A member of the RNA family "Hairpin ribozyme 1 from viruses-like metatranscriptomes", 83 nucleotides long.
RNA sequence: AUGCGGUAUGCAUCAUAAUGGUGCAUGAAGCAUGGUAACGAAACACUCAGACUUUAUUUCAAGUCUGAGGCACAUUACUUACC
Numbered sequence: 001a002u003g004c005g006g007u008a009u010g011c012a013u014c015a016u017a018a019u020g021g022u023g024c025a026u027g028a029a030g031c032a033u034g035g036u037a038a039c040g041a042a043a044c045a046c047u048c049a050g051a052c053u054u055u056a057u058u059u060c061a062a063g064u065c066u067g068a069g070g071c072a073c074a075u076u077a078c079u080u081a082c083c
Base pairs, nucleotide, nucleotide: 001033002032003031004030009025010024011023012022013021014020015019034083035082036081037080038079046069047068048067049066050065051064052063053062054061